[Rfam]
RNA sequence: UGUGUGUGAUGGGUUGGCAGUGUAUUGUUAGCUGGUCGAAUUGAUAAGUGGCAUCAGCUAACAUGCAGCUGCUAACUUAUUGCAUAUG
Numbered sequence: 001u002g003u004g005u006g007u008g009a010u011g012g013g014u015u016g017g018c019a020g021u022g023u024a025u026u027g028u029u030a031g032c033u034g035g036u037c038g039a040a041u042u043g044a045u046a047a048g049u050g051g052c053a054u055c056a057g058c059u060a061a062c063a064u065g066c067a068g069c070u071g072c073u074a075a076c077u078u079a080u081u082g083c084a085u086a087u088g
Stems, first nucleotide, its partner, number of pairs: 001088013015074007022066003027062010041050001
Background: The record is an 88-nucleotide RNA from Loxodonta africana, which matches "mir-449 microRNA precursor family" in Rfam. For this family Rfam cites "Small RNA expression and strain specificity in the rat" (Linsen et al., BMC Genomics, 2010). The base pairs follow the family's consensus structure, which was predicted with RNAalifold. The source organism's lineage runs through Eukaryota, Dipnotetrapodomorpha, Theria, Afrotheria and Loxodonta.